Bacterial small signal recognition particle RNA: a 97-nucleotide RNA from Pseudoclavibacter sp. CFCC 13611. Rfam describes the family as follows. The signal recognition particle (SRP) is a universally conserved ribonucleoprotein involved in the co-translational targeting of proteins to membranes. A search with the family's covariance model found it, with a score of 59 bits.
RNA sequence: GUCGGCUCCUCGUGUGACGACAUCCAGGCCAAUUCCCCCAGGGCGGAAACGCAGCAAGGGUAACCGGGCUCUGUCGGGUGCGCGAGGAGUCUUUUCU
Numbered sequence: 001g002u003c004g005g006c007u008c009c010u011c012g013u014g015u016g017a018c019g020a021c022a023u024c025c026a027g028g029c030c031a032a033u034u035c036c037c038c039c040a041g042g043g044c045g046g047a048a049a050c051g052c053a054g055c056a057a058g059g060g061u062a063a064c065c066g067g068g069c070u071c072u073g074u075c076g077g078g079u080g081c082g083c084g085a086g087g088a089g090u091c092u093u094u095u096c097u
Stems, first nucleotide, its partner, number of pairs: 004091011015078001018076005024068002027065002035060003043052003

For this family Rfam cites "Temperature-responsive in vitro RNA structurome of Yersinia pseudotuberculosis" (Righetti et al., Proc Natl Acad Sci U S A, 2016). Lineage of the source: Bacteria > Actinomycetes > Micrococcales > Microbacteriaceae > Pseudoclavibacter.